[Rfam]
RNA sequence: GGGGAUAUAGCUCAGUUGGUAGAGCGCCGCCCUUGCAAGGCGGAUGUCAGCGGUUCGAGUCCGCUUAUCUCCA
Numbered sequence: 001g002g003g004g005a006u007a008u009a010g011c012u013c014a015g016u017u018g019g020u021a022g023a024g025c026g027c028c029g030c031c032c033u034u035g036c037a038a039g040g041c042g043g044a045u046g047u048c049a050g051c052g053g054u055u056c057g058a059g060u061c062c063g064c065u066u067a068u069c070u071c072c073a
Stems, first nucleotide, its partner, number of pairs: 001072007010025004027043005049065005
A member of the RNA family "tRNA", 73 nucleotides long. Transfer RNA (tRNA) molecules are approximately 80 nucleotides in length. Rfam classes the family as a transfer RNA. The sequence is in the family's curated seed alignment.